[Rfam]
RNA sequence: AAUAGUGAUUAUGGGAGCUGGGUCAGUCCGGCUGAGAGGAUGCUUCAAAUGCAUCGACCAUUGAACCUGAUCUGGGUAAUGCCAGCGUAGGGAAUGAGUGAAAGAUGAAU
Numbered sequence: 001a002a003u004a005g006u007g008a009u010u011a012u013g014g015g016a017g018c019u020g021g022g023u024c025a026g027u028c029c030g031g032c033u034g035a036g037a038g039g040a041u042g043c044u045u046c047a048a049a050u051g052c053a054u055c056g057a058c059c060a061u062u063g064a065a066c067c068u069g070a071u072c073u074g075g076g077u078a079a080u081g082c083c084a085g086c087g088u089a090g091g092g093a094a095u096g097a098g099u100g101a102a103a104g105a106u107g108a109a110u
Base pairs, nucleotide, nucleotide: 006098010094011061012060013059014058017032018031019030020029021028039055040054041053042052043051066091067090068089069088072085073084074083075082
The record is a 110-nucleotide sequence from Bacillaceae bacterium SAS-127, which matches "TPP riboswitch aptamer (THI element)" in Rfam.
A search with the family's covariance model found it, with a score of 64 bits.
Lineage of the source: Bacteria > Bacillati > Bacillota > Caryophanales > Bacillaceae.
Rfam links the family to the GO term thiamine pyrophosphate binding.